[Rfam]
RNA: M-box riboswitch aptamer (ykoK leader)
RNA sequence: UUGAUUCCUCGUUAGGUGAGGCUCCUGUGUAGGAGAUAUGCUGCUGCCCAAAAACGUCCAAAGACGCCAAUGGGUCAACAGAAACUAUCGACUUAAGGUAGUUUUUAAUGUAGCUGGUUUAUCCUAUGCCGCACAGUGCUAAAGCUCUACGAAUGGAGGCGGUU
Numbered sequence: 001u002u003g004a005u006u007c008c009u010c011g012u013u014a015g016g017u018g019a020g021g022c023u024c025c026u027g028u029g030u031a032g033g034a035g036a037u038a039u040g041c042u043g044c045u046g047c048c049c050a051a052a053a054a055c056g057u058c059c060a061a062a063g064a065c066g067c068c069a070a071u072g073g074g075u076c077a078a079c080a081g082a083a084a085c086u087a088u089c090g091a092c093u094u095a096a097g098g099u100a101g102u103u104u105u106u107a108a109u110g111u112a113g114c115u116g117g118u119u120u121a122u123c124c125u126a127u128g129c130c131g132c133a134c135a136g137u138g139c140u141a142a143a144g145c146u147c148u149a150c151g152a153a154u155g156g157a158g159g160c161g162g163u164u
Stems, first nucleotide, its partner, number of pairs: 005161001007159004011150002013096001015146003020140003025136006032130002040114005046075005055066004081105004087099003116124002